Rfam assigns this 61-nucleotide RNA sequence from Diachasma alloeum to the family "mir-14 microRNA precursor family". The source organism's lineage runs through Eukaryota, Opisthokonta, Allotriocarida, Hexapoda and Diachasma. The base pairs follow the family's consensus structure, which was predicted with RNAalifold. For this family Rfam cites "Direct sequencing and expression analysis of a large number of miRNAs in Aedes aegypti and a multi-species survey of novel mosquito miRNAs" (Li et al., BMC Genomics, 2009).
[Rfam]
RNA sequence: ACUGGGGGUGAGAAACUGGCUUGGCUAUGACUUAUCAGUCAGUCUUUUUCUCUCUCCUAUC
Numbered sequence: 001a002c003u004g005g006g007g008g009u010g011a012g013a014a015a016c017u018g019g020c021u022u023g024g025c026u027a028u029g030a031c032u033u034a035u036c037a038g039u040c041a042g043u044c045u046u047u048u049u050c051u052c053u054c055u056c057c058u059a060u061c
Stems, first nucleotide, its partner, number of pairs: 003059006010052004015047001018044004024039003